Small nucleolar RNA snR8: a 175-nucleotide RNA from Candida viswanathii. Clan: SNORA56 clan. The source organism's lineage runs through Eukaryota, Opisthokonta, Ascomycota, Saccharomycotina and Candida. It scores 86 bits against the family's covariance model.

Nucleotides: 175
Stems, first nucleotide, its partner, number of pairs: 020078002023074002032064002035061002038056005100169005108162001110160001119153003133141001
Number, partner (000 for none) and nucleotide at each position: 001000c002000u003000g004000u005000u006000c007000u008000u009000u010000g011000a012000u013000a014000c015000g016000a017000a018000a019000u020078g021077c022000c023074u024073u025000c026000u027000a028000u029000u030000c031000a032064c033063u034000g035061c036060a037000c038056c039055g040054u041053u042052u043000a044000c045000u046000a047000u048000c049000a050000a051000u052042g053041a054040a055039c056038g057000u058000a059000g060036u061035g062000g063033a064032g065000g066000g067000g068000a069000a070000a071000a072000g073024a074023a075000c076000g077021g078020c079000u080000a081000g082000a083000c084000u085000a086000a087000a088000u089000a090000u091000u092000c093000a094000c095000a096000u097000a098000u099000c100169a101168u102167c103166g104165a105000a106000g107000a108162a109000c110160u111000u112000c113000c114000u115000c116000a117000u118000a119153c120152u121151g122000a123000g124000u125000c126000u127000a128000c129000u130000c131000u132000a133141u134000u135000a136000u137000c138000a139000a140000c141133a142000u143000a144000g145000g146000a147000u148000u149000c150000u151121u152120g153119g154000a155000u156000u157000c158000u159000g160110g161000u162108u163000c164000u165104u166103c167102g168101a169100u170000a171000c172000a173000u174000u175000u

For this family Rfam cites "Genetic analysis of small nuclear RNAs in Saccharomyces cerevisiae: viable sextuple mutant" (Parker et al., Mol Cell Biol, 1988). Rfam classes the family as an H/ACA-box small nucleolar RNA.